[Rfam]
RNA sequence: AGGGUGGACGACGACGACAUCGUCUCCCACAUCCUGGCCGGGCUAGACGAAGAUUUCUACCCGGUGGUGUCGGCCAUGUGUUCCCGGGUGGAGCCGGUGACCGUGGCUGAGCUGUUCUCGCAGCUGCUGAGCUUCGAGA
Number, nucleotide and partner (000 for none) at each position: 001a000002g000003g000004g000005u137006g000007g135008a134009c000010g000011a000012c000013g000014a000015c000016g000017a000018c000019a000020u000021c000022g000023u000024c000025u000026c000027c000028c000029a000030c000031a000032u000033c000034c000035u000036g000037g000038c000039c000040g000041g000042g000043c000044u000045a000046g000047a000048c000049g000050a000051a000052g000053a000054u000055u000056u000057c000058u000059a000060c000061c000062c000063g000064g000065u000066g000067g000068u000069g000070u000071c000072g000073g000074c000075c000076a000077u000078g000079u000080g000081u000082u000083c000084c000085c000086g000087g000088g000089u000090g000091g000092a108093g107094c106095c105096g104097g000098u000099g000100a000101c000102c000103g000104u096105g095106g094107c093108u092109g000110a000111g000112c000113u000114g000115u000116u000117c000118u000119c000120g000121c000122a000123g000124c000125u000126g000127c000128u000129g000130a000131g000132c000133u000134u008135c007136g000137a005138g000139a000

Small nucleolar RNA Z247: a 139-nucleotide RNA from Triticum urartu. It is annotated as a C/D-box small nucleolar RNA. Its family is annotated with nucleolus and RNA processing in the Gene Ontology. The source organism's lineage runs through Eukaryota, Petrosaviidae, commelinids, Triticeae and Triticum. The literature on the family includes a 2003 paper in Nucleic Acids Res by Chen et al., "The high diversity of snoRNAs in plants: identification and comparative study of 120 snoRNA genes from Oryza sativa". It scores 49 bits against the family's covariance model.